Shown here is a 53-nucleotide RNA, a member of the family "chrB-b RNA".
It is one of the family's seed sequences.
[Rfam]
Nucleotides: 053
Stems, first nucleotide, its partner, number of pairs: 001021006010053005031043005
Number, partner (000 for none) and nucleotide at each position: 001021c002020c003019g004018g005017g006016g007000a008000c009000c010053g011052c012051a013050g014049a015000c016006u017005c018004c019003c020002g021001g022000u023000a024000u025000u026000c027000c028000c029000a030000a031043g032042a033041c034040g035039g036000a037000c038000u039035c040034c041033g042032u043031c044000c045000a046000a047000g048000u049014u050013c051012u052011g053010c